[Rfam]
RNA sequence: UGAUACCAGGGUCAAAAGGUCAGAAAGCCUUUUGCGAGCUUGCUUACAAGAGGAUUUUUGACCUUUUGACCCGCCAAAAACAUGAAUAAGCAGCCAUUUUUCGUAGAAAAAUGAGCGAAUUAUGAAUGUUUUUGAGGAUUGCGAAAGUGCAAUGCACGGAGCAAUCCGGUAUCA
Numbered sequence: 001u002g003a004u005a006c007c008a009g010g011g012u013c014a015a016a017a018g019g020u021c022a023g024a025a026a027g028c029c030u031u032u033u034g035c036g037a038g039c040u041u042g043c044u045u046a047c048a049a050g051a052g053g054a055u056u057u058u059u060g061a062c063c064u065u066u067u068g069a070c071c072c073g074c075c076a077a078a079a080a081c082a083u084g085a086a087u088a089a090g091c092a093g094c095c096a097u098u099u100u101u102c103g104u105a106g107a108a109a110a111a112u113g114a115g116c117g118a119a120u121u122a123u124g125a126a127u128g129u130u131u132u133u134g135a136g137g138a139u140u141g142c143g144a145a146a147g148u149g150c151a152a153u154g155c156a157c158g159g160a161g162c163a164a165u166c167c168g169g170u171a172u173c174a
Stems, first nucleotide, its partner, number of pairs: 001174007010071004017064010028053005034047001036045003076133008086123004093116002095113008136167007147157004
RNA: Clostridiales-1 RNA